[Rfam]
RNA sequence: GGUCUCGAGUAUCAGCGGUAAGCCCCGGCUCGCUGGUCGGCAACCCUCCUCCGCGGUGGGGUGCCCCGGGUGAUGACCGGGCUCUACUCGUGGUGAGAGGGCAAGCGCGCACC
Numbered sequence: 001g002g003u004c005u006c007g008a009g010u011a012u013c014a015g016c017g018g019u020a021a022g023c024c025c026c027g028g029c030u031c032g033c034u035g036g037u038c039g040g041c042a043a044c045c046c047u048c049c050u051c052c053g054c055g056g057u058g059g060g061g062u063g064c065c066c067c068g069g070g071u072g073a074u075g076a077c078c079g080g081g082c083u084c085u086a087c088u089c090g091u092g093g094u095g096a097g098a099g100g101g102c103a104a105g106c107g108c109g110c111a112c113c
Stems, first nucleotide, its partner, number of pairs: 001078004009038001011037006021030002039065003044061003048056002081102005087097004
Background: The record is a 113-nucleotide sequence from Antrihabitans stalactiti, which matches "SAM (S-adenosyl methionine) riboswitch aptamer" in Rfam. The family's consensus secondary structure is taken from published work. Rfam's curators write: SAM-IV is a mRNA element that regulates gene expression via direct sensing of S-adenosylmethionine (SAM or AdoMet).